Rfam assigns this 193-nucleotide RNA sequence from Endozoicomonas numazuensis to the family "Lysine riboswitch aptamer". Gene Ontology term of the family: lysine biosynthetic process.
[Rfam]
RNA sequence: CAAUAAAGUAGAGGCGCACCGUUUAUCAGUAGUCCGGAGCAGGGUGACUCCGAAUGUCCUGGGUUGAUCAGGGCGGCAAAUCGGAUGAAAGGAAAAGGUGCCGAAGCAGAGAGUUCGUCAAACUCAUUUGCUGGUGCUGCAUCGAAGAGGUGUAUCACUGUCACAGUUUUUACUGUGGAGCGCUACUGGACAA
Numbered sequence: 001c002a003a004u005a006a007a008g009u010a011g012a013g014g015c016g017c018a019c020c021g022u023u024u025a026u027c028a029g030u031a032g033u034c035c036g037g038a039g040c041a042g043g044g045u046g047a048c049u050c051c052g053a054a055u056g057u058c059c060u061g062g063g064u065u066g067a068u069c070a071g072g073g074c075g076g077c078a079a080a081u082c083g084g085a086u087g088a089a090a091g092g093a094a095a096a097g098g099u100g101c102c103g104a105a106g107c108a109g110a111g112a113g114u115u116c117g118u119c120a121a122a123c124u125c126a127u128u129u130g131c132u133g134g135u136g137c138u139g140c141a142u143c144g145a146a147g148a149g150g151u152g153u154a155u156c157a158c159u160g161u162c163a164c165a166g167u168u169u170u171u172a173c174u175g176u177g178g179a180g181c182g183c184u185a186c187u188g189g190a191c192a193a
Stems, first nucleotide, its partner, number of pairs: 007187005016101005022095003032086006105132003108128002111125005133159004138154006161178007